Shown here is a 99-nucleotide sequence from Rubrivivax sp., a member of the family "SAH (S-adenosyl-L-homocysteine) riboswitch aptamer". It scores 48 bits against the family's covariance model. The family has 52 seed sequences and 1,354 matches in Rfam 15.1. A reference for the family is Wang et al. (2008), "Riboswitches that sense S-adenosylhomocysteine and activate genes involved in coenzyme recycling", Mol Cell.

RNA sequence: CUUCUCAAGGAGCGUUGCAGCGCCGGCGGGCUUUUCACAGCCCCCACCGUGCGUCAGGCUUGAGUGGGCGCGAACAGGCCCAAACGGCGCUCACCCAGU
Dot-bracket structure: .(.(((((............(((..(.....................)..)))......))))).).................................